Source information
The record is a 172-nucleotide RNA from Jeotgalibaca sp. PTS2502, which matches "Lysine riboswitch aptamer" in Rfam. Rfam 15.1 lists 3,224 matches to the family in 1,923 species. Taxonomically the source falls in Jeotgalibaca (Bacteria, Bacillati, Bacillota, Lactobacillales).
RNA sequence: CGUAUAGAUAGAGGUAGCAAUGUAAAUGAGUAAGACAUGGGAGAAGGCAUUCUAGGAUCAUGUUUGAAAGGUAAUCAUUGCCGAACAGUUAAAAUUGGCAAAUUUUAAUUGUGGGGAUGUGGGGAACACCUACAUCACUCCUACUUGCAAAAGUGGUGGUGCUAAAUAUGUU
Numbered sequence: 001c002g003u004a005u006a007g008a009u010a011g012a013g014g015u016a017g018c019a020a021u022g023u024a025a026a027u028g029a030g031u032a033a034g035a036c037a038u039g040g041g042a043g044a045a046g047g048c049a050u051u052c053u054a055g056g057a058u059c060a061u062g063u064u065u066g067a068a069a070g071g072u073a074a075u076c077a078u079u080g081c082c083g084a085a086c087a088g089u090u091a092a093a094a095u096u097g098g099c100a101a102a103u104u105u106u107a108a109u110u111g112u113g114g115g116g117a118u119g120u121g122g123g124g125a126a127c128a129c130c131u132a133c134a135u136c137a138c139u140c141c142u143a144c145u146u147g148c149a150a151a152a153g154u155g156g157u158g159g160u161g162c163u164a165a166a167u168a169u170g171u172u
Base pairs, nucleotide, nucleotide: 006167009164010163011162017081018080019079020078021077022076023074025072033065034064035063036062037061038060039059040058085112086111087110088109089108090107091106092105093104094103095102096101113139114138116136117135118134119133120132121131122130123129141156142155143154144153145152146151

A search with the family's covariance model found it, with a score of 92 bits.